[Rfam]
A member of the RNA family "Vault RNA" from Pomacea canaliculata, 96 nucleotides long.
RNA sequence: AAGACGGCUUAGCCGUGGGGAUACUUCGCUUACAACGUUCUUUUGGAUGUACGUGGGCUUCGCGCCCAGUUUCCCCUGGCGCAGUCCGUUCCUUUU
Numbered sequence: 001a002a003g004a005c006g007g008c009u010u011a012g013c014c015g016u017g018g019g020g021a022u023a024c025u026u027c028g029c030u031u032a033c034a035a036c037g038u039u040c041u042u043u044u045g046g047a048u049g050u051a052c053g054u055g056g057g058c059u060u061c062g063c064g065c066c067c068a069g070u071u072u073c074c075c076c077u078g079g080c081g082c083a084g085u086c087c088g089u090u091c092c093u094u095u096u
Stems, first nucleotide, its partner, number of pairs: 003090005012080004017076004025064001027062002